[Rfam]
RNA sequence: UAUCCGUGGGUUCACUGCAUCACGCACAAAUCUUUCGCCUUUUACUAAAGAUUUCCAUGCAGAGGACCGCUAUGAUCGGUAUAUAACAAUUUAUCGUUGCCUCGUCUUCGGACGAGGCU
Numbered sequence: 001u002a003u004c005c006g007u008g009g010g011u012u013c014a015c016u017g018c019a020u021c022a023c024g025c026a027c028a029a030a031u032c033u034u035u036c037g038c039c040u041u042u043u044a045c046u047a048a049a050g051a052u053u054u055c056c057a058u059g060c061a062g063a064g065g066a067c068c069g070c071u072a073u074g075a076u077c078g079g080u081a082u083a084u085a086a087c088a089a090u091u092u093a094u095c096g097u098u099g100c101c102u103c104g105u106c107u108u109c110g111g112a113c114g115a116g117g118c119u
Stems, first nucleotide, its partner, number of pairs: 004079003009068005015062005028054008099118006
RNA: U5 spliceosomal RNA
Organism: Strongylocentrotus purpuratus